About this RNA: Rfam assigns this 88-nucleotide RNA sequence from Sebaldella termitidis to the family "SAM riboswitch aptamer (S box leader)".
[Rfam]
RNA sequence: AUAUCAUCAAGAGGAACUGAGAGACAGGCUCUGUGACGUUCCAGCAACCUACGUAAAUCGUGUGGUGCUAAUUCCUGAAAGAUGAAAA
Numbered sequence: 001a002u003a004u005c006a007u008c009a010a011g012a013g014g015a016a017c018u019g020a021g022a023g024a025c026a027g028g029c030u031c032u033g034u035g036a037c038g039u040u041c042c043a044g045c046a047a048c049c050u051a052c053g054u055a056a057a058u059c060g061u062g063u064g065g066u067g068c069u070a071a072u073u074c075c076u077g078a079a080a081g082a083u084g085a086a087a088a
Base pairs, nucleotide, nucleotide: 002087004085005084006083007082008081013042014041015040016039017038021031022030023029025077026076027075028074043069044068045067046066048065049064050062051061052060053059073080

Annotation
The SAM riboswitch is found upstream of a number of genes which code for proteins involved in methionine or cysteine biosynthesis in Gram-positive bacteria. It is one of the family's seed sequences. NCBI's taxonomy places the organism under Bacteria, Fusobacteriati, Fusobacteriia, Leptotrichiaceae, Sebaldella termitidis.